TPP riboswitch aptamer (THI element): a 104-nucleotide sequence from Clostridium sp. N3C.
Taxonomically the source falls in Clostridium (Bacteria, Bacillati, Bacillota, Eubacteriales).
A search with the family's covariance model found it, with a score of 68 bits.
RNA sequence: GGUUUAUGCUAGGGGUGCCAUGAGCUGAGAAAUGGUUAUUGAAACCAUUAACCCUCAUACCUGAUCUGGUUAGUACCAGCGUAGGGAAGCAAGAUAUGAACUUU
Numbered sequence: 001g002g003u004u005u006a007u008g009c010u011a012g013g014g015g016u017g018c019c020a021u022g023a024g025c026u027g028a029g030a031a032a033u034g035g036u037u038a039u040u041g042a043a044a045c046c047a048u049u050a051a052c053c054c055u056c057a058u059a060c061c062u063g064a065u066c067u068g069g070u071u072a073g074u075a076c077c078a079g080c081g082u083a084g085g086g087a088a089g090c091a092a093g094a095u096a097u098g099a100a101c102u103u104u
Stems, first nucleotide, its partner, number of pairs: 007091004011055004017025002032048005060085004066079004

Source information
The family's consensus secondary structure is taken from published work.